[Rfam]
RNA sequence: UUAAAACAGCCUGUGGGUUGCACCCACCCACAGGGCCCACUGGGCGCUGGUACACUGGUAUUAAGGUACCCUUGUACGCCUGUUUUAUAU
Numbered sequence: 001u002u003a004a005a006a007c008a009g010c011c012u013g014u015g016g017g018u019u020g021c022a023c024c025c026a027c028c029c030a031c032a033g034g035g036c037c038c039a040c041u042g043g044g045c046g047c048u049g050g051u052a053c054a055c056u057g058g059u060a061u062u063a064a065g066g067u068a069c070c071c072u073u074g075u076a077c078g079c080c081u082g083u084u085u086u087a088u089a090u
Stems, first nucleotide, its partner, number of pairs: 002087007010034009035045003046079002050077004057070004
RNA: Enterovirus 5' cloverleaf cis-acting replication element
Organism: Enterovirus betacoxsackie